[Rfam]
RNA sequence: UAUUUAUCCAGAAAGAUGGAGGAAUUGACCCUGAGAAAUCUUGACAACCUGUCUCAAAAGAUAAGGUGCCACAUUCAACUGCAGAGAUGCAGAUAGAUAAGUA
Numbered sequence: 001u002a003u004u005u006a007u008c009c010a011g012a013a014a015g016a017u018g019g020a021g022g023a024a025u026u027g028a029c030c031c032u033g034a035g036a037a038a039u040c041u042u043g044a045c046a047a048c049c050u051g052u053c054u055c056a057a058a059a060g061a062u063a064a065g066g067u068g069c070c071a072c073a074u075u076c077a078a079c080u081g082c083a084g085a086g087a088u089g090c091a092g093a094u095a096g097a098u099a100a101g102u103a
Base pairs, nucleotide, nucleotide: 001103002102003101004100005099006098007097008096013042014041015040016039017038021031022030025078026077027076028075043070045068046067048066049065050063051062052061053060074095079092080091081090082089083088
Record summary: SAM riboswitch aptamer (S box leader): a 103-nucleotide RNA sequence from a Bacteroidota bacterium. A search with the family's covariance model found it, with a score of 70 bits. The source organism's lineage runs through Bacteria, Pseudomonadati and Bacteroidota.